[Rfam]
RNA sequence: UAAUUCAUUAUGGUUUACAGGUUCUUGAAGCUAAUAACCUCGUCAUUACGGGGUUUUUUGUUGUCUGGGACUUUUAAAUUUGUCGUAUCCUAUACGACGUUUUACUAGGGCUAUUAAGCCCUUUUUUG
Numbered sequence: 001u002a003a004u005u006c007a008u009u010a011u012g013g014u015u016u017a018c019a020g021g022u023u024c025u026u027g028a029a030g031c032u033a034a035u036a037a038c039c040u041c042g043u044c045a046u047u048a049c050g051g052g053g054u055u056u057u058u059u060g061u062u063g064u065c066u067g068g069g070a071c072u073u074u075u076a077a078a079u080u081u082g083u084c085g086u087a088u089c090c091u092a093u094a095c096g097a098c099g100u101u102u103u104a105c106u107a108g109g110g111c112u113a114u115u116a117a118g119c120c121c122u123u124u125u126u127u128g
Base pairs, nucleotide, nucleotide: 034057036055037054038053039052040051041050042049108121109120110119111118
RNA: Gammaprotebacteria rimP leader